[Rfam]
RNA sequence: AUCGCCUGGGGAUCUUGUUAAAAUGUAAGUCUGAUUCAGUGAGUCUGGGAUGGGGCCCAAGAUUCUGCAUUUUUAACAAGUUCCCAGGUGAUGCCAG
Numbered sequence: 001a002u003c004g005c006c007u008g009g010g011g012a013u014c015u016u017g018u019u020a021a022a023a024u025g026u027a028a029g030u031c032u033g034a035u036u037c038a039g040u041g042a043g044u045c046u047g048g049g050a051u052g053g054g055g056c057c058c059a060a061g062a063u064u065c066u067g068c069a070u071u072u073u074u075a076a077c078a079a080g081u082u083c084c085c086a087g088g089u090g091a092u093g094c095c096a097g
Base pairs, nucleotide, nucleotide: 003090004089005088009084010083011082014080015079016078017077018076019075020074021072022071023070025068026067027066028064030062031061032060
Annotation:
A member of the RNA family "mir-544 microRNA precursor family" from Physeter macrocephalus, 97 nucleotides long. The match comes from Rfam's covariance-model search (76 bits). The source organism's lineage runs through Eukaryota, Eumetazoa, Bilateria, Theria and Physeter.